flg-Rhizobiales RNA: a 135-nucleotide RNA sequence from Afipia carboxidovorans. By type it is a cis-regulatory element.

[Rfam]
RNA sequence: GAACCGUCCGCUUGGGAGAGCGAACGGUUUAACGGACCACCAUCGGCUUUGGGAGAGGCCGGUCGCGGUUUUGCAAGGGGAGAUCUGCGAUGGAGAACACGAGUCUCGUCGCGCUAUCGCGCCAGAUGACGCUUG
Numbered sequence: 001g002a003a004c005c006g007u008c009c010g011c012u013u014g015g016g017a018g019a020g021c022g023a024a025c026g027g028u029u030u031a032a033c034g035g036a037c038c039a040c041c042a043u044c045g046g047c048u049u050u051g052g053g054a055g056a057g058g059c060c061g062g063u064c065g066c067g068g069u070u071u072u073g074c075a076a077g078g079g080g081a082g083a084u085c086u087g088c089g090a091u092g093g094a095g096a097a098c099a100c101g102a103g104u105c106u107c108g109u110c111g112c113g114c115u116a117u118c119g120c121g122c123c124a125g126a127u128g129a130c131g132c133u134u135g
Base pairs, nucleotide, nucleotide: 001030002029003028004027005026006025007024009022010021011020012019013018035070036069037068038067040065046059047058048057049056050055087112088111089110090109091108093107094106095105096104